[Rfam]
Nucleotides: 080
Base pairs, nucleotide, nucleotide: 005076006075007074009072010071011070013067014066015065016064018062019061020060021059022058023057025055026054027053029052031050032049033048
Number, partner (000 for none) and nucleotide at each position: 001000u002000c003000c004000a005076c006075a007074g008000g009072g010071c011070u012000a013067a014066a015065g016064u017000g018062c019061u020060u021059a022058c023057a024000g025055u026054g027053c028000a029052g030000a031050u032049a033048g034000u035000u036000g037000g038000c039000a040000u041000u042000u043000u044000g045000g046000u047000g048033c049032u050031a051000c052029u053027g054026c055025a056000g057023u058022g059021u060020g061019g062018g063000g064016g065015c066014u067013u068000g069000c070011a071010g072009c073000u074007c075006u076005g077000g078000g079000g080000g